[Rfam]
RNA sequence: AACUAUUACAGUCGAUGAGGAUAGGUUAUAGUUAAUUCAUCCGUUGAAGUAUCUGGCUGUAUGGUUCUUGGCAUGAGUCCUUGUGGCUUUUUGUUGAGGGCUUUGGCGGGCGCUGUGGAUUGCACCGUGGCCUUUCACCACCUUAUAGCGGUGUUUAUAAUGUACAACUGAGGCUG
Numbered sequence: 001a002a003c004u005a006u007u008a009c010a011g012u013c014g015a016u017g018a019g020g021a022u023a024g025g026u027u028a029u030a031g032u033u034a035a036u037u038c039a040u041c042c043g044u045u046g047a048a049g050u051a052u053c054u055g056g057c058u059g060u061a062u063g064g065u066u067c068u069u070g071g072c073a074u075g076a077g078u079c080c081u082u083g084u085g086g087c088u089u090u091u092u093g094u095u096g097a098g099g100g101c102u103u104u105g106g107c108g109g110g111c112g113c114u115g116u117g118g119a120u121u122g123c124a125c126c127g128u129g130g131c132c133u134u135u136c137a138c139c140a141c142c143u144u145a146u147a148g149c150g151g152u153g154u155u156u157a158u159a160a161u162g163u164a165c166a167a168c169u170g171a172g173g174c175u176g
Stems, first nucleotide, its partner, number of pairs: 009176005016137004023133006029122005035116001038115002041112001055066003067110004072105002075103006082096002084093003139153004
RNA: Small nucleolar RNA snR4